Record summary:
Shown here is a 349-nucleotide RNA sequence from Streptococcus massiliensis, a member of the family "transfer-messenger RNA". Bacterial tmRNA, also known as 10Sa RNA or SsrA, is named for its dual tRNA and mRNA-like properties. Its role is to liberate the mRNA from a stalled ribosome. To accomplish this part of the tmRNA is used as a reading frame that ends in a translation stop signal. The broken mRNA is replaced in the ribosome by the tmRNA and translation of the tmRNA leads to addition of a proteolysis tag to the incomplete protein enabling recognition by a protease. The organism belongs to Streptococcus, within Bacteria. The family's consensus secondary structure is taken from published work.
RNA sequence: GGGGUCGUUACGGAUUCGACAGGCAUUAUGAGGCAUAUUUUGCGACUCAUCUAGCGGAUGUAAAACGCCAGUUAAAUAUAACUGCAAAAAAUAACAAUUCUUACGCUUUAGCUGCCUAAAAACCAGCGGGCGUGACCUGAUUUGGAUUGCUUGUGUCUAAUGCUAGGUCUUUAUUUUAGCAAGCUACGGCAAGGUCUCGUCUAGCGGCCUUGCAAGAGAUUGAUAGACUCGCUUGACUUGGGCUUGAGCUAUGUGUCAAAGUUAAGUUAAAAUAAGAUAUAGCCUAUGGUUGUAGACAAAUGUGUUGGCAGGUGUUUGGACGUGGGUUCGACUCCCACCGGCUCCAUUG
Dot-bracket structure: (((((((............((((((((....(((((((((..(((((((((..[[[)))).....]]].......................................((.((((.........)))).))...(((((((((.((((.[[[[[[)))))))..)))))).........]]]]]]....((((((((..[..[.[.))))))))..........].]..].(((((((((.(((..[.......[))).)))))))))........].......]...))))).....)))))))))....))))))))...(((((.......))))))))))))....